[Rfam]
RNA sequence: AGCUUUACCCUAACACAAGCAAAGACUUGCCUUCUGAAAGCAGUAAGUGCUAUUUGUUGGGGUAGUGUU
Numbered sequence: 001a002g003c004u005u006u007a008c009c010c011u012a013a014c015a016c017a018a019g020c021a022a023a024g025a026c027u028u029g030c031c032u033u034c035u036g037a038a039a040g041c042a043g044u045a046a047g048u049g050c051u052a053u054u055u056g057u058u059g060g061g062g063u064a065g066u067g068u069u
Stems, first nucleotide, its partner, number of pairs: 005065007013057003017053001018051004025044003
Record summary
Rfam assigns this 69-nucleotide RNA sequence from Hippoglossus hippoglossus to the family "miR-430 microRNA precursor family". A reference for the family is Giraldez et al. (2005), "MicroRNAs regulate brain morphogenesis in zebrafish", Science. Clan: mir-290 clan. Its family is annotated with RISC complex and miRNA-mediated post-transcriptional gene silencing in the Gene Ontology. The sequence is in the family's curated seed alignment. The family has 32 seed sequences and 24,817 matches in Rfam 15.1.